[Rfam]
RNA sequence: CAUGCCUGAGAAUGAUGAAAAUUAUGUUGGUAGGGACAUCUGAGAGCAGUGAUGAUUACCAACGUCUCUGAUCAGGCCAUG
Numbered sequence: 001c002a003u004g005c006c007u008g009a010g011a012a013u014g015a016u017g018a019a020a021a022u023u024a025u026g027u028u029g030g031u032a033g034g035g036a037c038a039u040c041u042g043a044g045a046g047c048a049g050u051g052a053u054g055a056u057u058a059c060c061a062a063c064g065u066c067u068c069u070g071a072u073c074a075g076g077c078c079a080u081g
Stems, first nucleotide, its partner, number of pairs: 001081004005076001